[Rfam]
RNA sequence: CGUUGUCCUCCCGCAGUCACCUCCGGCCGAUCGCGGCAUCCUGCUUCCGGCUUCUCUUCUCACGACAGGAACCCGGAAGCAGGACGCCACGAUCGGGCGGAGGUGACUGCGGGAGUAAAGCAAGGG
Numbered sequence: 001c002g003u004u005g006u007c008c009u010c011c012c013g014c015a016g017u018c019a020c021c022u023c024c025g026g027c028c029g030a031u032c033g034c035g036g037c038a039u040c041c042u043g044c045u046u047c048c049g050g051c052u053u054c055u056c057u058u059c060u061c062a063c064g065a066c067a068g069g070a071a072c073c074c075g076g077a078a079g080c081a082g083g084a085c086g087c088c089a090c091g092a093u094c095g096g097g098c099g100g101a102g103g104u105g106a107c108u109g110c111g112g113g114a115g116u117a118a119a120g121c122a123a124g125g126g
Stems, first nucleotide, its partner, number of pairs: 010113007018105002021102005027096007035088003039084012
A member of the RNA family "mraW RNA" from Leptobrachium leishanense, 126 nucleotides long.
The match comes from Rfam's covariance-model search (51 bits).
Taxonomically the source falls in Leptobrachium (Eukaryota, Eumetazoa, Teleostomi, Anura).
Rfam classes the family as a cis-regulatory element.